[Rfam]
This 73-nucleotide RNA from Ligilactobacillus saerimneri belongs to the Rfam family "tRNA".
The source organism's lineage runs through Bacteria, Bacillota, Bacilli, Lactobacillaceae and Ligilactobacillus saerimneri.
The match comes from Rfam's covariance-model search (54 bits).
RNA sequence: UGCCCGUUGGUCAAAUUGGUUAAGACGUCGCCCUCUCAAGGCGGAGUUGCGGGUUCGAUCCCCGUACGGGUGA
Numbered sequence: 001u002g003c004c005c006g007u008u009g010g011u012c013a014a015a016u017u018g019g020u021u022a023a024g025a026c027g028u029c030g031c032c033c034u035c036u037c038a039a040g041g042c043g044g045a046g047u048u049g050c051g052g053g054u055u056c057g058a059u060c061c062c063c064g065u066a067c068g069g070g071u072g073a
Stems, first nucleotide, its partner, number of pairs: 001072007010026003028044005049065005